[Rfam]
The family of this 76-nucleotide sequence from Pleuronectes platessa is "Small nucleolar RNA SNORD83". NCBI's taxonomy places the organism under Eukaryota, Eumetazoa, Percomorphaceae, Pleuronectidae, Pleuronectes. The match comes from Rfam's covariance-model search (44 bits). Pairs were carried over by alignment from the consensus structure, which was predicted with PFOLD. For this family Rfam cites "Characterisation of the U83 and U84 small nucleolar RNAs: two novel 2'-O-ribose methylation guide RNAs that lack complementarities to ribosomal RNAs" (Jady and Kiss, Nucleic Acids Res, 2000). It is annotated as a C/D-box small nucleolar RNA.

RNA sequence: GCCACAUGAUGAGUUCAGAAGCGUCAGGAGCUUCAGGCUGUGAUGACCUGCUAUCUAUCACCCUUUUCUGAUGGCU
Numbered sequence: 001g002c003c004a005c006a007u008g009a010u011g012a013g014u015u016c017a018g019a020a021g022c023g024u025c026a027g028g029a030g031c032u033u034c035a036g037g038c039u040g041u042g043a044u045g046a047c048c049u050g051c052u053a054u055c056u057a058u059c060a061c062c063c064u065u066u067u068c069u070g071a072u073g074g075c076u
Base pairs, nucleotide, nucleotide: 001075002074003073004072030038031037032036